[Rfam]
RNA sequence: UAAAAAACUUGGGGGUGCCGAAAAUUUCGGCUGAGAGUAAACCCCUUGAACCUGAUACUUGUAAUCAAGUCGUAGGGAAAGUUGCUGCAAACAAA
Dot-bracket structure: .....(((((((((.((((((.....))))).......)..)))).....((((..((((......))))..))))..)))))............
Numbered sequence: 001u002a003a004a005a006a007a008c009u010u011g012g013g014g015g016u017g018c019c020g021a022a023a024a025u026u027u028c029g030g031c032u033g034a035g036a037g038u039a040a041a042c043c044c045c046u047u048g049a050a051c052c053u054g055a056u057a058c059u060u061g062u063a064a065u066c067a068a069g070u071c072g073u074a075g076g077g078a079a080a081g082u083u084g085c086u087g088c089a090a091a092c093a094a095a
Stems, first nucleotide, its partner, number of pairs: 006083005011045004016039001017031005051076004057070004